[Rfam]
RNA sequence: AGUAAUUAAAAACGAAAUGCAUAUAUAAACGCCAUAAUAAGGAUGGCGAGUUUCUACCCAGAACCGUAAAUUCUGGACUAUACGCAAUAAACUCAUCAAA
Numbered sequence: 001a002g003u004a005a006u007u008a009a010a011a012a013c014g015a016a017a018u019g020c021a022u023a024u025a026u027a028a029a030c031g032c033c034a035u036a037a038u039a040a041g042g043a044u045g046g047c048g049a050g051u052u053u054c055u056a057c058c059c060a061g062a063a064c065c066g067u068a069a070a071u072u073c074u075g076g077a078c079u080a081u082a083c084g085c086a087a088u089a090a091a092c093u094c095a096u097c098a099a100a
Base pairs, nucleotide, nucleotide: 018086019085020084022082023081024080025079030048031047032046033045034044035043058076059075060074061073062072063071
The family of this 100-nucleotide RNA sequence from Pediococcus cellicola is "Purine riboswitch aptamer". Pairs were carried over by alignment from the consensus structure, which is taken from published work.